The family of this 57-nucleotide RNA from Bruinsmia styracoides is "Plastid-ccsA-ndhD-1 3UTR RNA". NCBI's taxonomy places the organism under Eukaryota, Viridiplantae, Euphyllophyta, Gunneridae, Bruinsmia. Its Rfam clan is "Plastid-ccsA_ndhD 3UTR RNA clan". The literature on the family includes a 1987 paper in Cell by Stern and Gruissem, "Control of plastid gene expression: 3' inverted repeats act as mRNA processing and stabilizing elements, but do not terminate transcription". By type it is a cis-regulatory element. About the family: Plastid-ccsA-ndhD-1 is a non-coding RNA (ncRNA) recognised in plastids. The base pairs follow the family's consensus structure, which was predicted with LocARNA.
Nucleotides: 057
Stems, first nucleotide, its partner, number of pairs: 008055011020043007
Number, partner (000 for none) and nucleotide at each position: 001000u002000a003000a004000g005000c006000c007000a008055g009054u010053g011052a012051g013050a014049a015048c016047c017046a018045u019000u020043u021042g022041a023040a024039u025038c026037a027000a028000g029000u030000a031000u032000u033000u034000u035000a036000g037026u038025g039024a040023u041022u042021c043020a044000c045018a046017u047016g048015g049014u050013u051012c052011u053010c054009a055008c056000a057000a